Source information
Rfam assigns this 153-nucleotide sequence from Roseburia sp. CAG:18 to the family "Ribosomal protein L10 leader". Lineage of the source: Bacteria > Bacillati > Bacillota > Lachnospirales > Roseburia. The family's consensus secondary structure was predicted with CMfinder. Rfam classes the family as a cis-regulatory leader. The match comes from Rfam's covariance-model search (55 bits).
RNA sequence: UAAUAACAAAGCAUAUUGCCGAAGACAGUAAGGUGCUAUCGCAUAUUGCGACAGCGUAAAGGGAAAUCCACCUACCGAGGGAAUUUUUGAUGAUAAUCGUCAUAAAGAAUGAUACCCCUCUGCUGUAAGGCGGAGGGUUUUUAUUAUACCUCA
Numbered sequence: 001u002a003a004u005a006a007c008a009a010a011g012c013a014u015a016u017u018g019c020c021g022a023a024g025a026c027a028g029u030a031a032g033g034u035g036c037u038a039u040c041g042c043a044u045a046u047u048g049c050g051a052c053a054g055c056g057u058a059a060a061g062g063g064a065a066a067u068c069c070a071c072c073u074a075c076c077g078a079g080g081g082a083a084u085u086u087u088u089g090a091u092g093a094u095a096a097u098c099g100u101c102a103u104a105a106a107g108a109a110u111g112a113u114a115c116c117c118c119u120c121u122g123c124u125g126u127a128a129g130g131c132g133g134a135g136g137g138u139u140u141u142u143a144u145u146a147u148a149c150c151u152c153a
Stems, first nucleotide, its partner, number of pairs: 028075003032072003035055003116137009